Eukaryotic small subunit ribosomal RNA: a 167-nucleotide part of an RNA from Jaera nordmanni. Rfam 15.1 lists 75,755 matches to the family in 2,556 species. The organism belongs to Jaera, within Eukaryota. Rfam links the family to the GO terms ribosome and structural constituent of ribosome. The family's consensus secondary structure is taken from published work. For this family Rfam cites "The comparative RNA web (CRW) site: an online database of comparative sequence and structure information for ribosomal, intron, and other RNAs" (Cannone et al., BMC Bioinformatics, 2002).
[Rfam]
RNA sequence: CACCGCCCGUCGCUACUACCGAUUGAAUGGUUAAGUAAGGUCAUUGGACUAUCACUUUAAUGAUUUCGUAUUAUAAAAGUUGAUAGGAAGAUGUCCGAAUUGGAUCAUUUAGAGGAAGUAAAAGUCGUAACAAGGUUUUCGUAGGUGAACCUGCGGAAGGAUCAUUA
Numbered sequence: 001c002a003c004c005g006c007c008c009g010u011c012g013c014u015a016c017u018a019c020c021g022a023u024u025g026a027a028u029g030g031u032u033a034a035g036u037a038a039g040g041u042c043a044u045u046g047g048a049c050u051a052u053c054a055c056u057u058u059a060a061u062g063a064u065u066u067c068g069u070a071u072u073a074u075a076a077a078a079g080u081u082g083a084u085a086g087g088a089a090g091a092u093g094u095c096c097g098a099a100u101u102g103g104a105u106c107a108u109u110u111a112g113a114g115g116a117a118g119u120a121a122a123a124g125u126c127g128u129a130a131c132a133a134g135g136u137u138u139u140c141g142u143a144g145g146u147g148a149a150c151c152u153g154c155g156g157a158a159g160g161a162u163c164a165u166u167a
Base pairs, nucleotide, nucleotide: 003134005131008127009126011124014120015119016118017117019115020114023111025110026109027108028107029106030105031104032103034101035100036099039096040095042093043092044091045090049086050085051084052083053082054080055079056078057077058076061073062072063071064070136159137158138157139156140155141154142153143152144151145150